[Rfam]
RNA sequence: AUAACAACAAUAACAAGCAGUCCUCAAAUAAGAAUAAGACGUAACGGCUCUAGCAGAACAACAACAAGAAGGCAGAGACGCAGCUAACUGAUUCUUUUGGAGUCGACUUGCCGGCGGGGCUUGCCCCACGACCAGACCGAGAACAAUAAAACUGCCCCCAGGCAGCGCCCGAACUGGUUGGAUGACGGCAAUAUCAGCGACCAAAGCAAUCCGUUUGCUAUUGGCUCCCGGAUGGGGAGCUUCCUGGUGACGCACCGGGACGGACGACCAAUAAAAACAACACGUCCGUAAAACCAAUAAUAAAAAAGCACGUACCACAUUAGGGGGGAGCUUCGGCUCCCCCCAGUGCUUUGCGCCCUCCCCUCGCUUUGACACCU
Numbered sequence: 001a002u003a004a005c006a007a008c009a010a011u012a013a014c015a016a017g018c019a020g021u022c023c024u025c026a027a028a029u030a031a032g033a034a035u036a037a038g039a040c041g042u043a044a045c046g047g048c049u050c051u052a053g054c055a056g057a058a059c060a061a062c063a064a065c066a067a068g069a070a071g072g073c074a075g076a077g078a079c080g081c082a083g084c085u086a087a088c089u090g091a092u093u094c095u096u097u098u099g100g101a102g103u104c105g106a107c108u109u110g111c112c113g114g115c116g117g118g119g120c121u122u123g124c125c126c127c128a129c130g131a132c133c134a135g136a137c138c139g140a141g142a143a144c145a146a147u148a149a150a151a152c153u154g155c156c157c158c159c160a161g162g163c164a165g166c167g168c169c170c171g172a173a174c175u176g177g178u179u180g181g182a183u184g185a186c187g188g189c190a191a192u193a194u195c196a197g198c199g200a201c202c203a204a205a206g207c208a209a210u211c212c213g214u215u216u217g218c219u220a221u222u223g224g225c226u227c228c229c230g231g232a233u234g235g236g237g238a239g240c241u242u243c244c245u246g247g248u249g250a251c252g253c254a255c256c257g258g259g260a261c262g263g264a265c266g267a268c269c270a271a272u273a274a275a276a277a278c279a280a281c282a283c284g285u286c287c288g289u290a291a292a293a294c295c296a297a298u299a300a301u302a303a304a305a306a307a308g309c310a311c312g313u314a315c316c317a318c319a320u321u322a323g324g325g326g327g328g329a330g331c332u333u334c335g336g337c338u339c340c341c342c343c344c345a346g347u348g349c350u351u352u353g354c355g356c357c358c359u360c361c362c363c364u365c366g367c368u369u370u371g372a373c374a375c376c377u
Base pairs, nucleotide, nucleotide: 045080046079048077049076050075051074095206096205097204098203099202109199110198111197129180130179131178132177133176134175135174152165153164154163155162156161224240225239226238227237228236257362258361259360260359262287263286264285265284306351307350308349309348324343325342326341327340328339329338330337331336
The family of this 377-nucleotide RNA from Stutzerimonas nosocomialis is "Pseudomonas sRNA CrcZ".
For this family Rfam cites "The Pseudomonas putida Crc global regulator is an RNA binding protein that inhibits translation of the AlkS transcriptional regulator" (Moreno et al., Mol Microbiol, 2007).
Rfam links the family to the GO term carbon catabolite repression of transcription.
The source organism's lineage runs through Bacteria, Pseudomonadati, Gammaproteobacteria, Pseudomonadaceae and Stutzerimonas.
By type it is a small RNA.
The family has 19 seed sequences and 127 matches in Rfam 15.1.